[Rfam]
RNA sequence: CAGUGAAUUGGUUGCUGUAGAGCCAAGGGCGGUAGCGUG
Numbered sequence: 001c002a003g004u005g006a007a008u009u010g011g012u013u014g015c016u017g018u019a020g021a022g023c024c025a026a027g028g029g030c031g032g033u034a035g036c037g038u039g
Stems, first nucleotide, its partner, number of pairs: 008026005

About this RNA:
JUMPstart RNA: a 39-nucleotide sequence from Hafnia alvei. NCBI's taxonomy places the organism under Bacteria, Pseudomonadota, Enterobacterales, Hafnia, Hafnia alvei. Rfam classes the family as a cis-regulatory element. The base pairs follow the family's consensus structure, which is taken from published work.